[Rfam]
RNA sequence: CUGUUUCUGUGAUGAAUUAUCAUUGCCUACAUUGUUUGAGGGUUACUCAUUGAUGAAGACAUGAUGUUCUGAGAAACAA
Numbered sequence: 001c002u003g004u005u006u007c008u009g010u011g012a013u014g015a016a017u018u019a020u021c022a023u024u025g026c027c028u029a030c031a032u033u034g035u036u037u038g039a040g041g042g043u044u045a046c047u048c049a050u051u052g053a054u055g056a057a058g059a060c061a062u063g064a065u066g067u068u069c070u071g072a073g074a075a076a077c078a079a
Base pairs, nucleotide, nucleotide: 002078004076005075006074007073
Record summary: Small nucleolar RNA SNORD34: a 79-nucleotide sequence from Nematostella vectensis. It is annotated as a C/D-box small nucleolar RNA. snoRNA U34 is found in intron 5 of the ribosomal protein L13a gene in humans. Taxonomically the source falls in Nematostella (Eukaryota, Metazoa, Hexacorallia, Edwardsiidae). Gene Ontology terms of the family: RNA processing and nucleolus. Clan: SNORD34 clan. On this family, see Galardi et al., Mol Cell Biol 2002: "Purified box C/D snoRNPs are able to reproduce site-specific 2'-O-methylation of target RNA in vitro".